[Rfam]
RNA sequence: UCUUUAUCAAGAGAGGCAGAGGGACCGGCCCUUUGAAGCCCAGCAACCUCAGUUUAUACAAACUGAAUAGGUGCUAAUUCCUGCAAAAUGCAUUGCAUUUUGAAAGAUAAAAC
Dot-bracket structure: ..((((((....(.(((...(((.[.[[)))......))))((((.((((((..........))))...))))))...(]].]((((((.......))))))..)))))))..

Source information: A member of the RNA family "SAM riboswitch aptamer (S box leader)" from Bacillus thuringiensis, 113 nucleotides long. Rfam's curators put it in the seed alignment. NCBI's taxonomy places the organism under Bacteria, Caryophanales, Bacillaceae, Bacillus, [Bacillus thuringiensis] serovar konkukian. The family's consensus secondary structure is taken from published work.